This 165-nucleotide RNA sequence from Phyllostomus discolor belongs to the Rfam family "Small Cajal body specific RNA 11". The family's RNA type in Rfam is small Cajal body RNA. scaRNAs are a specific class of small nuclear RNAs which localise to the Cajal bodies and guide the modification of RNA polymerase II transcribed spliceosomal RNAs U1, U2, U4, U5 and U12. ACA57 belongs to the H/ACA box class of guide RNAs as it has the predicted hairpin-hinge-hairpin-tail structure, conserved H/ACA-box motifs and is found associated with GAR1. ACA57 is predicted to guide the pseudouridylation of the U5 spliceosomal RNA at position U43. A reference for the family is Darzacq et al. (2002), "Cajal body-specific small nuclear RNAs: a novel class of 2'-O-methylation and pseudouridylation guide RNAs", EMBO J. The family has 24 seed sequences and 853 matches in Rfam 15.1.

RNA sequence: UUGUCCUGGCCUAUGCUUUUUCUGCUCCCCUGUGCGCAGUUGUAACAGGGGAGUCUGACAGGACACACAGCAGUCUCCCUCUCAGUGUAAGAGAGGGCUGUUCCGAGUAUAGACUCUUAAAGGCAUGCCCUGUCCAGAGGGCUCUUAAAGGCACGAAAGGACAAU
Numbered sequence: 001u002u003g004u005c006c007u008g009g010c011c012u013a014u015g016c017u018u019u020u021u022c023u024g025c026u027c028c029c030c031u032g033u034g035c036g037c038a039g040u041u042g043u044a045a046c047a048g049g050g051g052a053g054u055c056u057g058a059c060a061g062g063a064c065a066c067a068c069a070g071c072a073g074u075c076u077c078c079c080u081c082u083c084a085g086u087g088u089a090a091g092a093g094a095g096g097g098c099u100g101u102u103c104c105g106a107g108u109a110u111a112g113a114c115u116c117u118u119a120a121a122g123g124c125a126u127g128c129c130c131u132g133u134c135c136a137g138a139g140g141g142c143u144c145u146u147a148a149a150g151g152c153a154c155g156a157a158a159g160g161a162c163a164a165u
Stems, first nucleotide, its partner, number of pairs: 002065007011057001024054003028050006078160003082156002085152002088149001091146005